RNA sequence: CGAGAGAUUCACGGUUAAGGAACUAGGCAAAUUGACCCCGUAACUUCGGGAAAAGGGGUCCCUGCGAAAGCAGGGCGCAGAGAAUAGGUCCAGGCAACUGUUUAACAAAAACACAGGGCUGUGCAAAAUUUAAAGAUGAAGUAUACAGCCUGACACCUGCCCGGUGCCGGAAGGUUAAGAGGAGGCGUCAUCGCAAGAGAAGCGCUGAAUUGAAGCCCCGGUAAACGGCGGCCGUAACUAUAACGGUCCUAAGGUAGCGAAAUUCCUUGUCGGGUAAGUUCCGACCUGCACGAAUGGUGUAAUGAUCCGGACACUGUCUCAACCGUGAGCUCG
Number, nucleotide and partner (000 for none) at each position: 001c333002g332003a331004g330005a000006g000007a000008u000009u328010c327011a326012c325013g324014g323015u322016u321017a000018a319019g318020g317021a000022a000023c000024u000025a000026g000027g000028c000029a000030a000031a000032u000033u000034g000035a059036c058037c057038c056039c055040g000041u000042a000043a000044c049045u000046u000047c000048g000049g044050g000051a000052a000053a000054a000055g039056g038057g037058g036059u035060c075061c074062c073063u072064g071065c070066g000067a000068a000069a000070g065071c064072a063073g062074g061075g060076c080077g000078c000079a000080g076081a000082g000083a000084a000085u000086a000087g000088g312089u311090c310091c309092a000093g307094g306095c304096a303097a000098c000099u113100g112101u111102u000103u000104a000105a000106c000107a000108a000109a000110a000111a101112c100113a099114c000115a000116g151117g150118g149119c148120u147121g146122u145123g144124c141125a000126a000127a000128a137129u136130u135131u000132a000133a000134a000135g130136a129137u128138g000139a000140a000141g124142u000143a000144u123145a122146c121147a120148g119149c118150c117151u116152g000153a000154c299155a298156c297157c296158u000159g229160c228161c227162c000163g000164g226165u225166g222167c221168c220169g219170g218171a000172a000173g217174g216175u215176u000177a000178a000179g211180a210181g000182g000183a000184g206185g205186c204187g203188u202189c000190a000191u198192c197193g000194c000195a000196a000197g192198a191199g000200a000201a000202g188203c187204g186205c185206u184207g000208a000209a000210u180211u179212g000213a000214a000215g175216c174217c173218c170219c169220g168221g167222u166223a000224a000225a165226c164227g161228g160229c159230g248231g247232c246233c245234g244235u243236a000237a000238c000239u000240a000241u000242a000243a235244c234245g233246g232247u231248c230249c253250u000251a000252a000253g249254g000255u000256a000257g000258c000259g286260a000261a000262a000263u000264u000265c000266c000267u000268u000269g285270u284271c283272g282273g281274g280275u000276a000277a000278g000279u000280u274281c273282c272283g271284a270285c269286c259287u000288g000289c000290a000291c000292g000293a000294a000295u000296g157297g156298u155299g154300u000301a000302a000303u096304g095305a000306u094307c093308c000309g091310g090311a089312c088313a000314c000315u000316g000317u020318c019319u018320c000321a016322a015323c014324c013325g012326u011327g010328a009329g000330c004331u003332c002333g001

The record is a 333-nucleotide part of an RNA from Muribaculaceae bacterium Isolate-002, which matches "Bacterial large subunit ribosomal RNA" in Rfam. Gene Ontology terms of the family: structural constituent of ribosome and ribosome. The match comes from Rfam's covariance-model search (2752 bits). Pairs were carried over by alignment from the consensus structure, which is taken from published work.